[Rfam]
RNA sequence: AACCGGCUAAUAAGUGGGUUAGCCGAAGGACUGAACGGAGUCAUGACU
Numbered sequence: 001a002a003c004c005g006g007c008u009a010a011u012a013a014g015u016g017g018g019u020u021a022g023c024c025g026a027a028g029g030a031c032u033g034a035a036c037g038g039a040g041u042c043a044u045g046a047c048u
Stems, first nucleotide, its partner, number of pairs: 004025008029042004
The family of this 48-nucleotide RNA is "gut-2 RNA". Rfam's curators put it in the seed alignment. By type it is a small RNA.